[Rfam]
The family of this 117-nucleotide sequence from Methylobacterium sp. BTF04 is "ALIL pseudoknot". Lineage of the source: Bacteria > Pseudomonadati > Pseudomonadota > Alphaproteobacteria > Methylobacterium.
RNA sequence: CGCGUAUUUUGCGAUGGCGGAGCUCGACCGCCCUUUCAAACGAUGAAGGCGUUCAUCGACGAGCACCGCGAUGCCUACGGGGUCGAGCCGAUCUGCAAAGUGCUGCCGAUCGCCCCG
Numbered sequence: 001c002g003c004g005u006a007u008u009u010u011g012c013g014a015u016g017g018c019g020g021a022g023c024u025c026g027a028c029c030g031c032c033c034u035u036u037c038a039a040a041c042g043a044u045g046a047a048g049g050c051g052u053u054c055a056u057c058g059a060c061g062a063g064c065a066c067c068g069c070g071a072u073g074c075c076u077a078c079g080g081g082g083u084c085g086a087g088c089c090g091a092u093c094u095g096c097a098a099a100g101u102g103c104u105g106c107c108g109a110u111c112g113c114c115c116c117g
Stems, first nucleotide, its partner, number of pairs: 016032005078117005089112002092109002095106003